[Rfam]
RNA sequence: CCUGACGUCGAGCCAGACGUGCAAUGCUUUGUAUUAACGUUUUGUUCGUUCGGCUCGCGUUAAGC
Number, nucleotide and partner (000 for none) at each position: 001c064002c000003u062004g000005a060006c059007g058008u000009c057010g056011a055012g054013c053014c052015a000016g000017a000018c048019g047020u000021g045022c044023a043024a042025u000026g040027c039028u000029u000030u000031g000032u000033a000034u000035u000036a000037a000038c000039g027040u026041u000042u024043u023044g022045u021046u000047c019048g018049u000050u000051c000052g014053g013054c012055u011056c010057g009058c007059g006060u005061u000062a003063a000064g001065c000
A member of the RNA family "mir-375 microRNA precursor family" from Xenopus laevis, 65 nucleotides long. Rfam links the family to the GO terms miRNA-mediated post-transcriptional gene silencing and RISC complex. On this family, see Chen et al., Genes Dev 2005: "The developmental miRNA profiles of zebrafish as determined by small RNA cloning". The source organism's lineage runs through Eukaryota, Vertebrata, Pipoidea, Pipidae and Xenopus. Pairs were carried over by alignment from the consensus structure, which was predicted with RNAalifold.